[Rfam]
RNA: MIR535 microRNA precursor family
Organism: Camphora micrantha
RNA sequence: GGAUCUGGAUGACAACGAGAGAGAGCACGUUUGUCAGCAUUUAUGCGAACUGACAUGACUGUUUACAGGCGUGCUUUCUCUCGUUGUCACUCUCCU
Numbered sequence: 001g002g003a004u005c006u007g008g009a010u011g012a013c014a015a016c017g018a019g020a021g022a023g024a025g026c027a028c029g030u031u032u033g034u035c036a037g038c039a040u041u042u043a044u045g046c047g048a049a050c051u052g053a054c055a056u057g058a059c060u061g062u063u064u065a066c067a068g069g070c071g072u073g074c075u076u077u078c079u080c081u082c083g084u085u086g087u088c089a090c091u092c093u094c095c096u
Stems, first nucleotide, its partner, number of pairs: 010089005016083002020079002023076001025074010